[Rfam]
Shown here is a 163-nucleotide RNA sequence from Subtercola lobariae, a member of the family "FMN riboswitch aptamer (RFN element)". Its family is annotated with FMN binding in the Gene Ontology. The family's consensus secondary structure is taken from published work. A search with the family's covariance model found it, with a score of 76 bits.
RNA sequence: GGCGUGCUCCGGGGUCGGUGAGAAUCCGAACCGGCGGUUAUAGUCCGCGAACUGAGGUUCGCCCUGCGACGCAGGGUGCCGAGGUUGAUCUGGUGAAACUCCAGAACCGACGGUCAUGAAGGUGCUUCGGUGCCUUCAGUAGUCCGGAUGAGAGGUGCACACG
Numbered sequence: 001g002g003c004g005u006g007c008u009c010c011g012g013g014g015u016c017g018g019u020g021a022g023a024a025u026c027c028g029a030a031c032c033g034g035c036g037g038u039u040a041u042a043g044u045c046c047g048c049g050a051a052c053u054g055a056g057g058u059u060c061g062c063c064c065u066g067c068g069a070c071g072c073a074g075g076g077u078g079c080c081g082a083g084g085u086u087g088a089u090c091u092g093g094u095g096a097a098a099c100u101c102c103a104g105a106a107c108c109g110a111c112g113g114u115c116a117u118g119a120a121g122g123u124g125c126u127u128c129g130g131u132g133c134c135u136u137c138a139g140u141a142g143u144c145c146g147g148a149u150g151a152g153a154g155g156u157g158c159a160c161a162c163g
Base pairs, nucleotide, nucleotide: 004160005159006158007157009155010154016028017027018026032109033108034048035047036046037045043107044106051085052084053083089105090104091103092102093101111146112145113144